Cyp24a1 internal ribosome entry site (IRES): a 401-nucleotide sequence. For this family Rfam cites "Inflammatory conditions induce IRES-dependent translation of cyp24a1" (Rubsamen et al., PLoS One, 2014). Rfam's curators put it in the seed alignment.
RNA sequence: GACAGGAGGAAACGCAGCGCCAGCAGCAUCUCAUCUACCCUCCUUGACACCUCCCCGUGGCUCCAGCCAGACCCUAGAGGUCAGCCUUGCGGACCAACAGGAGGACUCCCAGCUUUCCCUUUUCAAGAGGUCCCCAGACACCGGCCACCCUCUUCCAGCCCCUGCGGCCAGUGCAAGGAGGCACCAAUGCUCUGAGGCUGUCGCGUGGUGCAGCGUCGAGCAUCCUCGCCGAGGUCCUUUCUGCUGCCUGUCCCGCCUCACCCCGCUCCAUCACACCAGCUGGCCCUCUUUGCUUCCUUUUCCCAGAAUCGUUAAGCCCCGACUCCCACUAGCACCUCGUACCAACCUCGCCCCACCCCAUCCUCCUGCCUUCCCGCGCUCCGGUGUCCCCCGCUGCCAUG
Number, nucleotide and partner (000 for none) at each position: 001g000002a000003c368004a367005g366006g365007a364008g363009g362010a361011a000012a000013c000014g251015c250016a249017g248018c000019g247020c246021c000022a245023g244024c243025a242026g241027c000028a000029u000030c000031u000032c000033a000034u000035c000036u000037a000038c000039c181040c180041u179042c178043c177044u176045u175046g174047a000048c173049a172050c171051c000052u000053c000054c000055c000056c000057g000058u170059g169060g168061c167062u166063c000064c164065a163066g162067c000068c000069a000070g000071a000072c000073c000074c000075u000076a153077g152078a151079g150080g149081u000082c000083a000084g145085c144086c143087u137088u136089g135090c000091g133092g132093a131094c130095c129096a000097a000098c000099a123100g122101g121102a120103g119104g118105a000106c000107u000108c000109c000110c000111a000112g000113c000114u000115u000116u000117c000118c104119c103120u102121u101122u100123u099124c000125a000126a000127g000128a000129g095130g094131u093132c092133c091134c000135c089136a088137g087138a000139c000140a000141c000142c000143g086144g085145c084146c000147a000148c000149c080150c079151u078152c077153u076154u000155c000156c000157a000158g000159c000160c000161c000162c066163u065164g064165c000166g062167g061168c060169c059170a058171g050172u049173g048174c046175a045176a044177g043178g042179a041180g040181g039182c000183a000184c000185c000186a000187a223188u222189g221190c220191u219192c218193u000194g217195a216196g000197g214198c213199u212200g211201u000202c210203g209204c208205g000206u000207g000208g204209u203210g202211c200212a199213g198214c197215g000216u195217c194218g192219a191220g190221c189222a188223u187224c234225c233226u232227c231228g000229c000230c000231g227232a226233g225234g224235u000236c000237c000238u000239u000240u000241c026242u025243g024244c023245u022246g020247c019248c017249u016250g015251u014252c000253c000254c000255g000256c000257c000258u000259c000260a000261c000262c283263c282264c000265g280266c279267u278268c000269c000270a000271u000272c000273a000274c000275a000276c000277c000278a267279g266280c265281u000282g263283g262284c000285c000286c000287u000288c000289u000290u000291u000292g000293c000294u000295u000296c000297c000298u000299u000300u000301u000302c000303c000304c000305a000306g325307a324308a000309u322310c321311g320312u000313u000314a000315a000316g000317c000318c000319c000320c311321g310322a309323c000324u307325c306326c000327c000328a000329c000330u000331a000332g351333c350334a000335c000336c000337u000338c000339g000340u000341a000342c000343c000344a000345a000346c000347c000348u000349c000350g333351c332352c000353c000354c000355a000356c000357c000358c000359c000360a000361u010362c009363c008364u007365c006366c005367u004368g003369c000370c000371u000372u000373c000374c000375c000376g000377c000378g397379c396380u000381c000382c393383g392384g391385u000386g000387u000388c000389c000390c000391c384392c383393g382394c000395u000396g379397c378398c000399a000400u000401g000